[Rfam]
Shown here is a 131-nucleotide sequence from Aspergillus clavatus, a member of the family "U4 spliceosomal RNA".
Its Rfam clan is "U4 clan".
On this family, see Zhan et al., Cell Res 2018: "Structures of the human pre-catalytic spliceosome and its precursor spliceosome".
Rfam links the family to the GO terms U4 snRNP and spliceosomal tri-snRNP complex assembly.
Taxonomically the source falls in Aspergillus clavatus (Eukaryota, Fungi, Eurotiomycetes, Aspergillus subgen. Fumigati).
RNA sequence: AUCCUGGUGCACGGGUUUUACACGUAUCAGUGAGGAGACAUCCGAGAUCGUGUUUUUGCUAGUUGAAAACUACCUAUUUGACUGCUCCAGUUGGUCUUCGGAUCGGCUGGGAAUUUUUGAAGAAAAAGGUU
Numbered sequence: 001a002u003c004c005u006g007g008u009g010c011a012c013g014g015g016u017u018u019u020a021c022a023c024g025u026a027u028c029a030g031u032g033a034g035g036a037g038a039c040a041u042c043c044g045a046g047a048u049c050g051u052g053u054u055u056u057u058g059c060u061a062g063u064u065g066a067a068a069a070c071u072a073c074c075u076a077u078u079u080g081a082c083u084g085c086u087c088c089a090g091u092u093g094g095u096c097u098u099c100g101g102a103u104c105g106g107c108u109g110g111g112a113a114u115u116u117u118u119g120a121a122g123a124a125a126a127a128g129g130u131u
Stems, first nucleotide, its partner, number of pairs: 020053005026048003034043003086111011